[Rfam]
RNA sequence: GUCCUAUACAGAUGCAUUCAACGCUAGCCAGUUGAGCAUCUCCCUGUAGGACGAAGUUUAUUAGAAGCUCUAGCAACAAUUCUCAUUGUGUGGCUGUGGCUACAGUCGAAAUGAGAUGAAGCAGAGUGGAAUAGGUUAACCGUAAGACCUUGGGUUGAAAAACUCUAAAAUUGAGCUAGAGAUACGGGUUUCCUAAUUUUCUCAUUUUCUAAUUUUCUAGGUACGGUCUU
Numbered sequence: 001g002u003c004c005u006a007u008a009c010a011g012a013u014g015c016a017u018u019c020a021a022c023g024c025u026a027g028c029c030a031g032u033u034g035a036g037c038a039u040c041u042c043c044c045u046g047u048a049g050g051a052c053g054a055a056g057u058u059u060a061u062u063a064g065a066a067g068c069u070c071u072a073g074c075a076a077c078a079a080u081u082c083u084c085a086u087u088g089u090g091u092g093g094c095u096g097u098g099g100c101u102a103c104a105g106u107c108g109a110a111a112u113g114a115g116a117u118g119a120a121g122c123a124g125a126g127u128g129g130a131a132u133a134g135g136u137u138a139a140c141c142g143u144a145a146g147a148c149c150u151u152g153g154g155u156u157g158a159a160a161a162a163c164u165c166u167a168a169a170a171u172u173g174a175g176c177u178a179g180a181g182a183u184a185c186g187g188g189u190u191u192c193c194u195a196a197u198u199u200u201c202u203c204a205u206u207u208u209c210u211a212a213u214u215u216u217c218u219a220g221g222u223a224c225g226g227u228c229u230u
Base pairs, nucleotide, nucleotide: 001052002051003050004049005048006047007046008045010041011040012039013038014037015036018035019034020033021032022031023029067127068126069125070124071123081116082115083114084113085112086111087110092107093106095104096103097102133150134149135148136147137146139227140226141225142224143223144222145171152165153164154163155162156161176220177219178218179217180216181215182214186210187209

Annotation:
Rfam assigns this 230-nucleotide RNA to the family "IS605-orfB-I RNA".